[Rfam]
RNA: U1A polyadenylation inhibition element (PIE)
Organism: Anolis carolinensis
RNA sequence: AAAAAAAGCAUUGCACCCAGGGUCUGACAGCCAGACAUUGCACCUGGAGCUUUUCUGUUUUGGAAUAAAAAUGUG
Number, nucleotide and partner (000 for none) at each position: 001a000002a000003a000004a000005a053006a052007a051008g050009c049010a000011u000012u000013g000014c000015a000016c000017c047018c046019a045020g044021g000022g036023u035024c034025u033026g032027a000028c000029a000030g000031c000032c026033a025034g024035a023036c022037a000038u000039u000040g000041c000042a000043c000044c020045u019046g018047g017048a000049g009050c008051u007052u006053u005054u000055c000056u000057g000058u000059u000060u000061u000062g000063g000064a000065a000066u000067a000068a000069a000070a000071a000072u000073g000074u000075g000